[Rfam]
Shown here is an 80-nucleotide sequence from Acipenser ruthenus, a member of the family "mir-199 microRNA precursor family". On this family, see Mourelatos et al., Genes Dev 2002: "miRNPs: a novel class of ribonucleoproteins containing numerous microRNAs". Rfam links the family to the GO terms RISC complex and miRNA-mediated post-transcriptional gene silencing. A search with the family's covariance model found it, with a score of 92 bits. Taxonomically the source falls in Acipenser (Eukaryota, Craniata, Actinopteri, Acipenseroidei). This family consists of the microRNA (miRNA) precursor mir-199 which appears to be specific to humans. Animal miRNAs are transcribed as ~70nt precursors and subsequently processed by the Dicer enzyme to give a ~22nt product. In this case the mature sequence comes from the 3' arm of the precursor. The extents of the hairpin precursors are not generally known and are estimated based on hairpin prediction.
RNA sequence: CCCUUGUCUGCCCAGUGUUCAGACUACCUGUUCAUGAUGCUGCAGGUGUACAGUAGUCUGCACAUUGGUUAGGCUGGGAG
Numbered sequence: 001c002c003c004u005u006g007u008c009u010g011c012c013c014a015g016u017g018u019u020c021a022g023a024c025u026a027c028c029u030g031u032u033c034a035u036g037a038u039g040c041u042g043c044a045g046g047u048g049u050a051c052a053g054u055a056g057u058c059u060g061c062a063c064a065u066u067g068g069u070u071a072g073g074c075u076g077g078g079a080g
Stems, first nucleotide, its partner, number of pairs: 012068007020060007028053004033048002